[Rfam]
RNA sequence: CUUCAAGAGAUACCGCCUCAAGCUCCGACUGGCGGUGCGCCAACCCCAAGGCUCAUGGGUGGCUCGGAUGACGAAGCGGUCCGCCCCAACCGGUGCGGAUAAGAGCGUCGA
Numbered sequence: 001c002u003u004c005a006a007g008a009g010a011u012a013c014c015g016c017c018u019c020a021a022g023c024u025c026c027g028a029c030u031g032g033c034g035g036u037g038c039g040c041c042a043a044c045c046c047c048a049a050g051g052c053u054c055a056u057g058g059g060u061g062g063c064u065c066g067g068a069u070g071a072c073g074a075a076g077c078g079g080u081c082c083g084c085c086c087c088a089a090c091c092g093g094u095g096c097g098g099a100u101a102a103g104a105g106c107g108u109c110g111a
Stems, first nucleotide, its partner, number of pairs: 001076004009038001011037006021030002039063003044059003049053001079100006086093002

The record is a 111-nucleotide RNA sequence from Mycobacterium intermedium, which matches "SAM (S-adenosyl methionine) riboswitch aptamer" in Rfam.